This 118-nucleotide sequence from Kroppenstedtia pulmonis belongs to the Rfam family "Ribosomal protein L20 leader".
This family is a putative r-protein leader autoregulatory structure found in B. subtilis and other low-GC Gram-positive bacteria.
For this family Rfam cites "Diverse mechanisms for regulating ribosomal protein synthesis in Escherichia coli" (Zengel and Lindahl, Prog Nucleic Acid Res Mol Biol, 1994).
It is annotated as a cis-regulatory leader.
[Rfam]
RNA sequence: GUAGCCAAGAAGAAGCGCCCCGCUUCUCACCUGAUCGACGCACGGGCAGUUGACAGGUUUGCGAUUCUGGAUGACGGGAUCUUUAGGUGUGGGCGUAUGCCCACACCUUUUCUGCAUG
Numbered sequence: 001g002u003a004g005c006c007a008a009g010a011a012g013a014a015g016c017g018c019c020c021c022g023c024u025u026c027u028c029a030c031c032u033g034a035u036c037g038a039c040g041c042a043c044g045g046g047c048a049g050u051u052g053a054c055a056g057g058u059u060u061g062c063g064a065u066u067c068u069g070g071a072u073g074a075c076g077g078g079a080u081c082u083u084u085a086g087g088u089g090u091g092g093g094c095g096u097a098u099g100c101c102c103a104c105a106c107c108u109u110u111u112c113u114g115c116a117u118g
Stems, first nucleotide, its partner, number of pairs: 011027006029058003037051003040047002088105007